Shown here is a 111-nucleotide RNA sequence from Aspergillus fumigatus, a member of the family "A. fumigatus sRNA Afu_203". It is one of the family's seed sequences. Rfam classes the family as a small RNA. The family's consensus secondary structure was predicted with WAR. NCBI's taxonomy places the organism under Eukaryota, Eurotiales, Aspergillaceae, Aspergillus subgen. Fumigati, Aspergillus fumigatus. The literature on the family includes a 2008 paper in Nucleic Acids Res by Jochl et al., "Small ncRNA transcriptome analysis from Aspergillus fumigatus suggests a novel mechanism for regulation of protein synthesis".

RNA sequence: GACGAGGAUUAUAUAUAUUGCAUGGCUUUCGGACAACCAUGACGGUAACUCCAUACCUUUGGUAUGUUGUCAUGGCUGCAUGACGUACAUCGCAGGGGUAAUGAGUCGACC
Numbered sequence: 001g002a003c004g005a006g007g008a009u010u011a012u013a014u015a016u017a018u019u020g021c022a023u024g025g026c027u028u029u030c031g032g033a034c035a036a037c038c039a040u041g042a043c044g045g046u047a048a049c050u051c052c053a054u055a056c057c058u059u060u061g062g063u064a065u066g067u068u069g070u071c072a073u074g075g076c077u078g079c080a081u082g083a084c085g086u087a088c089a090u091c092g093c094a095g096g097g098g099u100a101a102u103g104a105g106u107c108g109a110c111c
Stems, first nucleotide, its partner, number of pairs: 003031005010024003044111003048106004054100008062091001064090004068085007